RNA: terC RNA
Organism: Rubellimicrobium roseum
RNA sequence: AGCCGGGUCCGGGCCCCUCUGGCAGCGCCGCCCAGCGCUGCGAUGUCGGACUUUCCAU
Numbered sequence: 001a002g003c004c005g006g007g008u009c010c011g012g013g014c015c016c017c018u019c020u021g022g023c024a025g026c027g028c029c030g031c032c033c034a035g036c037g038c039u040g041c042g043a044u045g046u047c048g049g050a051c052u053u054u055c056c057a058u
Stems, first nucleotide, its partner, number of pairs: 006052007022041007